[Rfam]
RNA: tRNA
RNA sequence: GGGCUUGUAGCUCAGUUGGAUAGAGUAUCUGGCUACGAACCAGAGGGUCGGGAGUUCGAAUCUCUCCAAGCCCA
Numbered sequence: 001g002g003g004c005u006u007g008u009a010g011c012u013c014a015g016u017u018g019g020a021u022a023g024a025g026u027a028u029c030u031g032g033c034u035a036c037g038a039a040c041c042a043g044a045g046g047g048u049c050g051g052g053a054g055u056u057c058g059a060a061u062c063u064c065u066c067c068a069a070g071c072c073c074a
Stems, first nucleotide, its partner, number of pairs: 001073007010026004028044005050066005